The family of this 74-nucleotide sequence from Cryptotermes secundus is "mir-219 microRNA precursor family". Rfam links the family to the GO terms miRNA-mediated post-transcriptional gene silencing and RISC complex. The family has 92 seed sequences and 1,318 matches in Rfam 15.1. The family's consensus secondary structure was predicted with RNAalifold. A search with the family's covariance model found it, with a score of 68 bits. Taxonomically the source falls in Cryptotermes (Eukaryota, Metazoa, Panarthropoda, Allotriocarida).

RNA sequence: UCAGGCCGUGAUUGUCCAAACGCAAUUCUUGUGUUGAGGAUAGUCAAGGACUGUGUGUGGACAUCAAUGCUUGA
Numbered sequence: 001u002c003a004g005g006c007c008g009u010g011a012u013u014g015u016c017c018a019a020a021c022g023c024a025a026u027u028c029u030u031g032u033g034u035u036g037a038g039g040a041u042a043g044u045c046a047a048g049g050a051c052u053g054u055g056u057g058u059g060g061a062c063a064u065c066a067a068u069g070c071u072u073g074a
Stems, first nucleotide, its partner, number of pairs: 002073005009066004014062005021055004026050006